[Rfam]
RNA sequence: AGGGAGCAUCCAAAAGCAGAGAUGUUACCCGAUACAGUCUUCCUAAAUUAAAUCCUUGUGAUUUCCUGCUUGUAGUUCUGUAGCAUGAACUACAGGUCUCAAAUCACUGGAUAUAUGA
Numbered sequence: 001a002g003g004g005a006g007c008a009u010c011c012a013a014a015a016g017c018a019g020a021g022a023u024g025u026u027a028c029c030c031g032a033u034a035c036a037g038u039c040u041u042c043c044u045a046a047a048u049u050a051a052a053u054c055c056u057u058g059u060g061a062u063u064u065c066c067u068g069c070u071u072g073u074a075g076u077u078c079u080g081u082a083g084c085a086u087g088a089a090c091u092a093c094a095g096g097u098c099u100c101a102a103a104u105c106a107c108u109g110g111a112u113a114u115a116u117g118a
Stems, first nucleotide, its partner, number of pairs: 002029002005026006056110002068097008077088002
Dot-bracket structure: .((.((((((..........)))))).))..........................((..........((((((((.((........)).))))))))...........))........